The family of this 143-nucleotide RNA sequence from Peribacillus muralis is "c-di-AMP riboswitch aptamer (ydaO/yuaA leader)".
[Rfam]
RNA sequence: AAUAUAUUUCGGCCAAAACUCAUGUGAUUUGAGUACGGAGGACCCAAUUACUUGGGGUUAAUUCUGCCUUGCAGAAGGGAUGAGAUCAGCUCUUUCGCCAUCCUACCCGUCAGCUAACUUCGUCGGCUAAAGCGAAGGAGGUC
Numbered sequence: 001a002a003u004a005u006a007u008u009u010c011g012g013c014c015a016a017a018a019c020u021c022a023u024g025u026g027a028u029u030u031g032a033g034u035a036c037g038g039a040g041g042a043c044c045c046a047a048u049u050a051c052u053u054g055g056g057g058u059u060a061a062u063u064c065u066g067c068c069u070u071g072c073a074g075a076a077g078g079g080a081u082g083a084g085a086u087c088a089g090c091u092c093u094u095u096c097g098c099c100a101u102c103c104u105a106c107c108c109g110u111c112a113g114c115u116a117a118c119u120u121c122g123u124c125g126g127c128u129a130a131a132g133c134g135a136a137g138g139a140g141g142u143c
Stems, first nucleotide, its partner, number of pairs: 011128004018034005035123006045054002055108003063075004078103004
Taxonomically the source falls in Peribacillus (Bacteria, Bacillati, Bacillota, Bacillaceae).
A search with the family's covariance model found it, with a score of 73 bits.